[Rfam]
RNA sequence: CGGUGGGGUAGAGGAGCAGAUCGAAAGAGUAAAACGUGUGAGGAUGACAACUGUGAUCACGUUUAAAAGGACGAUUUGCCGAAGUAGUAAAAGGAGUCACGACUUUUACUACUGGGGUUGCCUUAAAUAAGGGUAACACUGUCAUUAUAGGGAAUCCUAUAAUGGGGAGCUACAGAUCGA
Numbered sequence: 001c002g003g004u005g006g007g008g009u010a011g012a013g014g015a016g017c018a019g020a021u022c023g024a025a026a027g028a029g030u031a032a033a034a035c036g037u038g039u040g041a042g043g044a045u046g047a048c049a050a051c052u053g054u055g056a057u058c059a060c061g062u063u064u065a066a067a068a069g070g071a072c073g074a075u076u077u078g079c080c081g082a083a084g085u086a087g088u089a090a091a092a093g094g095a096g097u098c099a100c101g102a103c104u105u106u107u108a109c110u111a112c113u114g115g116g117g118u119u120g121c122c123u124u125a126a127a128u129a130a131g132g133g134u135a136a137c138a139c140u141g142u143c144a145u146u147a148u149a150g151g152g153a154a155u156c157c158u159a160u161a162a163u164g165g166g167g168a169g170c171u172a173c174a175g176a177u178c179g180a
Stems, first nucleotide, its partner, number of pairs: 008173004016079008032064007083113011114140002117137008142165007
Rfam assigns this 180-nucleotide RNA from Mangrovibacillus cuniculi to the family "Lysine riboswitch aptamer".
Lineage of the source: Bacteria > Bacilli > Caryophanales > Bacillaceae > Mangrovibacillus.
It scores 118 bits against the family's covariance model.